[Rfam]
RNA sequence: CGAGCAUCAGUGAUGAGCAAAUUCAAAAUUGUUAUCCUUGCACUUUGAUUACCCGUGAAGAAGCUUAUGGGGAAUUAUUUCUCUGAGGUGCUC
Numbered sequence: 001c002g003a004g005c006a007u008c009a010g011u012g013a014u015g016a017g018c019a020a021a022u023u024c025a026a027a028a029u030u031g032u033u034a035u036c037c038u039u040g041c042a043c044u045u046u047g048a049u050u051a052c053c054c055g056u057g058a059a060g061a062a063g064c065u066u067a068u069g070g071g072g073a074a075u076u077a078u079u080u081c082u083c084u085g086a087g088g089u090g091c092u093c
Stems, first nucleotide, its partner, number of pairs: 002093007